Actino-pnp RNA: an 82-nucleotide sequence from Nocardioides immobilis. The source organism's lineage runs through Bacteria, Bacillati, Actinomycetes, Propionibacteriales and Nocardioides. Rfam classes the family as a cis-regulatory element. Pairs were carried over by alignment from the consensus structure, which is taken from published work.
[Rfam]
RNA sequence: CCCGAUCCUCGGUAGUGGCACUCAGGAUCUCGUACGCCCGGUCACCGGGCUGAGAGCCUGCAUGCCUCGAUCGAAGAUCGGA
Numbered sequence: 001c002c003c004g005a006u007c008c009u010c011g012g013u014a015g016u017g018g019c020a021c022u023c024a025g026g027a028u029c030u031c032g033u034a035c036g037c038c039c040g041g042u043c044a045c046c047g048g049g050c051u052g053a054g055a056g057c058c059u060g061c062a063u064g065c066c067u068c069g070a071u072c073g074a075a076g077a078u079c080g081g082a
Base pairs, nucleotide, nucleotide: 002081003080004079005078006077007076009074010073011072012071013070017066018065019064020063023060024059025058026057029056030055031054